[Rfam]
This 133-nucleotide RNA sequence from Ziziphus jujuba belongs to the Rfam family "Small nucleolar RNA snoR111". The match comes from Rfam's covariance-model search (98 bits).
RNA sequence: UUAAGAAAAUGAGAGACAGUUCGUAUGUCUCUUUGUUUAGAAGAACAGCGAGGUAUAGCGAAGUCUCAACGGCCGAGAUAUCGUUUCAGUCGUCAUUUGUUGCAUUGGCGAUUUGAUUGUUGCUCGUCUACAC
Numbered sequence: 001u002u003a004a005g006a007a008a009a010u011g012a013g014a015g016a017c018a019g020u021u022c023g024u025a026u027g028u029c030u031c032u033u034u035g036u037u038u039a040g041a042a043g044a045a046c047a048g049c050g051a052g053g054u055a056u057a058g059c060g061a062a063g064u065c066u067c068a069a070c071g072g073c074c075g076a077g078a079u080a081u082c083g084u085u086u087c088a089g090u091c092g093u094c095a096u097u098u099g100u101u102g103c104a105u106u107g108g109c110g111a112u113u114u115g116a117u118u119g120u121u122g123c124u125c126g127u128c129u130a131c132a133c
Base pairs, nucleotide, nucleotide: 007038008037009036010035011034013031014030015029016028017027018026071129072128074126075125076124077123080117081116082115083114089112090111091110092109093108094107095106098104

NCBI's taxonomy places the organism under Eukaryota, Streptophyta, Mesangiospermae, Rosales, Ziziphus jujuba. It is annotated as an H/ACA-box small nucleolar RNA. Rfam links the family to the GO terms RNA processing and nucleolus. On this family, see Marker et al., Curr Biol 2002: "Experimental RNomics: identification of 140 candidates for small non-messenger RNAs in the plant Arabidopsis thaliana".